[Rfam]
RNA: Small nucleolar RNA SNORD35
RNA sequence: UGCAAGUGAUGUUUUUAAUCACGAUGGUCUUCAUAAUAUCACUGAUGAAAAUGCCUGAUGGCAUGUUGCUGAUGCAGUAAA
Numbered sequence: 001u002g003c004a005a006g007u008g009a010u011g012u013u014u015u016u017a018a019u020c021a022c023g024a025u026g027g028u029c030u031u032c033a034u035a036a037u038a039u040c041a042c043u044g045a046u047g048a049a050a051a052u053g054c055c056u057g058a059u060g061g062c063a064u065g066u067u068g069c070u071g072a073u074g075c076a077g078u079a080a081a
Stems, first nucleotide, its partner, number of pairs: 001076004